[Rfam]
Fluoride riboswitch aptamer (crcB RNA motif): a 76-nucleotide RNA from bacterium HR26.
The family's consensus secondary structure is taken from published work.

RNA sequence: AUCUUGAGGGGCGAUGGAGCCCGCCCGAGUCGAAACCGACUCGAACCGCCGGACGGCUGAUGGCUCCUGCUCGCGA
Numbered sequence: 001a002u003c004u005u006g007a008g009g010g011g012c013g014a015u016g017g018a019g020c021c022c023g024c025c026c027g028a029g030u031c032g033a034a035a036c037c038g039a040c041u042c043g044a045a046c047c048g049c050c051g052g053a054c055g056g057c058u059g060a061u062g063g064c065u066c067c068u069g070c071u072c073g074c075g076a
Stems, first nucleotide, its partner, number of pairs: 010025004016067006048057003